RNA sequence: CGGUCACGCGCCUAAAAGCUUUUAAAUCCCGGGGGAAAUCCACCCGACCAAACCCCACCAGCCUCCCCGCAGGCCGCCGUCACUCCAUGGAGUGACAUAUGCCAACUCGGCUGGAUUUCCGACGUGUUCGUCGCCCUAUGCUCACCCGGCAGGCAACACACAACCGCACACAUGCUUCGGCCCCCGGCCGGGACUAGCGAUCCCGAUCGAGGGCCUGGCCACCUAGGAAGCAGCCCUUCCCU
Numbered sequence: 001c002g003g004u005c006a007c008g009c010g011c012c013u014a015a016a017a018g019c020u021u022u023u024a025a026a027u028c029c030c031g032g033g034g035g036a037a038a039u040c041c042a043c044c045c046g047a048c049c050a051a052a053c054c055c056c057a058c059c060a061g062c063c064u065c066c067c068c069g070c071a072g073g074c075c076g077c078c079g080u081c082a083c084u085c086c087a088u089g090g091a092g093u094g095a096c097a098u099a100u101g102c103c104a105a106c107u108c109g110g111c112u113g114g115a116u117u118u119c120c121g122a123c124g125u126g127u128u129c130g131u132c133g134c135c136c137u138a139u140g141c142u143c144a145c146c147c148g149g150c151a152g153g154c155a156a157c158a159c160a161c162a163a164c165c166g167c168a169c170a171c172a173u174g175c176u177u178c179g180g181c182c183c184c185c186g187g188c189c190g191g192g193a194c195u196a197g198c199g200a201u202c203c204c205g206a207u208c209g210a211g212g213g214c215c216u217g218g219c220c221a222c223c224u225a226g227g228a229a230g231c232a233g234c235c236c237u238u239c240c241c242u
Stems, first nucleotide, its partner, number of pairs: 010067001080095006110150002112144003179215005185209002190204004226240005
Dot-bracket structure: .........(........................................................)............((((((....))))))..............(((((...........................)))....))............................(((((.((...((((.......))))...)).)))))..........(((((.....)))))..
RNA: Streptomyces sRNA 4677